Shown here is an 82-nucleotide sequence from Leucobacter luti, a member of the family "tRNA".
It scores 56 bits against the family's covariance model.
It is annotated as a transfer RNA.

RNA sequence: GCGCGAGUGGCGGAAUUGGUAGACGCGCUGGAUUUAGGUUCCAGUGUCUUCGGACGUGAGGGUUCAAGUCCCUUCUUGCGCA
Numbered sequence: 001g002c003g004c005g006a007g008u009g010g011c012g013g014a015a016u017u018g019g020u021a022g023a024c025g026c027g028c029u030g031g032a033u034u035u036a037g038g039u040u041c042c043a044g045u046g047u048c049u050u051c052g053g054a055c056g057u058g059a060g061g062g063u064u065c066a067a068g069u070c071c072c073u074u075c076u077u078g079c080g081c082a
Stems, first nucleotide, its partner, number of pairs: 001081007010026003028044005058074005